The record is a 76-nucleotide RNA from Tetracentron sinense, which matches "Small nucleolar RNA Z155" in Rfam. Rfam links the family to the GO terms RNA processing and nucleolus. The literature on the family includes a 2003 paper in Nucleic Acids Res by Chen et al., "The high diversity of snoRNAs in plants: identification and comparative study of 120 snoRNA genes from Oryza sativa".

RNA sequence: AGUUGAUGUGAUGAUAAUCGAUUCGGAAAGUAUAUAUGUCGAUUGAACAAAUCAGACUACAAUUAUCUGAUCAACG
Numbered sequence: 001a002g003u004u005g006a007u008g009u010g011a012u013g014a015u016a017a018u019c020g021a022u023u024c025g026g027a028a029a030g031u032a033u034a035u036a037u038g039u040c041g042a043u044u045g046a047a048c049a050a051a052u053c054a055g056a057c058u059a060c061a062a063u064u065a066u067c068u069g070a071u072c073a074a075c076g
Base pairs, nucleotide, nucleotide: 002075003074004073005072006071